[Rfam]
RNA sequence: CUGCCGGUGGAAGUCCGGUCCGGGUAGUGGCCAGGAGGCCCGGUAGCAGACUGGCGGCUCGGUCUGGAAACGGGUCGAGUCGAAGCCCAGCGUUGUGUCAGGGGGAGCGACUGAGCGGUCCGUAGCAUGA
Numbered sequence: 001c002u003g004c005c006g007g008u009g010g011a012a013g014u015c016c017g018g019u020c021c022g023g024g025u026a027g028u029g030g031c032c033a034g035g036a037g038g039c040c041c042g043g044u045a046g047c048a049g050a051c052u053g054g055c056g057g058c059u060c061g062g063u064c065u066g067g068a069a070a071c072g073g074g075u076c077g078a079g080u081c082g083a084a085g086c087c088c089a090g091c092g093u094u095g096u097g098u099c100a101g102g103g104g105g106a107g108c109g110a111c112u113g114a115g116c117g118g119u120c121c122g123u124a125g126c127a128u129g130a
Stems, first nucleotide, its partner, number of pairs: 020043005051090004055082006064073001066071001098104002107123003
Group II catalytic intron D1-D4-4: a 130-nucleotide RNA sequence from Micromonospora sp. MW-13. Rfam describes the family as follows. Group II introns are found in rRNA, tRNA and mRNA of organelles in fungi, plants and protists, and also in mRNA in bacteria. Gene Ontology term of the family: Group II intron splicing. Lineage of the source: Bacteria > Bacillati > Micromonosporales > Micromonosporaceae > Micromonospora. The literature on the family includes a 2001 paper in Trends Genet by Bonen and Vogel, "The ins and outs of group II introns".